[Rfam]
RNA sequence: UCGAGGACAGUCCCGCCGCGAACCGCCGGACACACGAAGAAGGCCCGAUCCGCCGAGGAUCGGGCCUUCUUCG
Numbered sequence: 001u002c003g004a005g006g007a008c009a010g011u012c013c014c015g016c017c018g019c020g021a022a023c024c025g026c027c028g029g030a031c032a033c034a035c036g037a038a039g040a041a042g043g044c045c046c047g048a049u050c051c052g053c054c055g056a057g058g059a060u061c062g063g064g065c066c067u068u069c070u071u072c073g
Stems, first nucleotide, its partner, number of pairs: 001006001010031004018026002035073006042066009
The record is a 73-nucleotide RNA sequence from Frondihabitans sp. 762G35, which matches "C0465 RNA" in Rfam.
By type it is a small RNA.
For this family Rfam cites "Transcriptome analysis of Escherichia coli using high-density oligonucleotide probe arrays" (Tjaden et al., Nucleic Acids Res, 2002).
Rfam describes the family as follows. This family consists of a number of bacterial RNA genes of 78 bases in length which are found between the tar and cheW genes in E. coli and Shigella flexneri. The function of this RNA is unknown.
The match comes from Rfam's covariance-model search (41 bits).
NCBI's taxonomy places the organism under Bacteria, Bacillati, Actinomycetota, Actinomycetes, Frondihabitans.
The base pairs follow the family's consensus structure, which was predicted with PFOLD.